[Rfam]
RNA sequence: UUGUCUUUGAGUGAUUAAUAAAACUUUAAUAAAAAAAAAAAUCUGUUCUUAUCAGUUUAAUAUCUGAUACGUCCCCUAUCAGGGGACCACAUAUUAAACGGAUUUUUGGAACAGGGAGUCGGAGAAGGAGCUUGCUCCGUCCGCUCCACGCAUCGGCCCGGCCCUGCAGAACUGCUAGGAACGGUGCACCGAUC
Numbered sequence: 001u002u003g004u005c006u007u008u009g010a011g012u013g014a015u016u017a018a019u020a021a022a023a024c025u026u027u028a029a030u031a032a033a034a035a036a037a038a039a040a041a042u043c044u045g046u047u048c049u050u051a052u053c054a055g056u057u058u059a060a061u062a063u064c065u066g067a068u069a070c071g072u073c074c075c076c077u078a079u080c081a082g083g084g085g086a087c088c089a090c091a092u093a094u095u096a097a098a099c100g101g102a103u104u105u106u107u108g109g110a111a112c113a114g115g116g117a118g119u120c121g122g123a124g125a126a127g128g129a130g131c132u133u134g135c136u137c138c139g140u141c142c143g144c145u146c147c148a149c150g151c152a153u154c155g156g157c158c159c160g161g162c163c164c165u166g167c168a169g170a171a172c173u174g175c176u177a178g179g180a181a182c183g184g185u186g187c188a189c190c191g192a193u194c
Stems, first nucleotide, its partner, number of pairs: 003024002050069006071087007115147005121141002127138004150187006157179002160176003
This 194-nucleotide RNA from Synaphobranchus kaupii belongs to the Rfam family "U2 spliceosomal RNA". Pairs were carried over by alignment from the consensus structure, which is taken from published work. The family is grouped with related families in Rfam's "U2 clan". The source organism's lineage runs through Eukaryota, Eumetazoa, Bilateria, Gnathostomata and Synaphobranchus. Rfam's curators write: U2 is a small nuclear RNA (snRNA) component of the spliceosome (involved in pre-mRNA splicing). The match comes from Rfam's covariance-model search (114 bits).